[Rfam]
RNA: Small nucleolar RNA Z278
Organism: Arabidopsis lyrata
RNA sequence: GUCGAUGAUGAUCUAAUCCAAUCUUACGAGGUGCAGUGGAGCUGAGACCCUGUUUUCAGGGAGAACCCCUUGGCAGAAGCUGCAAUUUCUAUGACUUGUAUGGAUUUUACUGAGAC
Numbered sequence: 001g002u003c004g005a006u007g008a009u010g011a012u013c014u015a016a017u018c019c020a021a022u023c024u025u026a027c028g029a030g031g032u033g034c035a036g037u038g039g040a041g042c043u044g045a046g047a048c049c050c051u052g053u054u055u056u057c058a059g060g061g062a063g064a065a066c067c068c069c070u071u072g073g074c075a076g077a078a079g080c081u082g083c084a085a086u087u088u089c090u091a092u093g094a095c096u097u098g099u100a101u102g103g104a105u106u107u108u109a110c111u112g113a114g115a116c
Stems, first nucleotide, its partner, number of pairs: 001116003048061005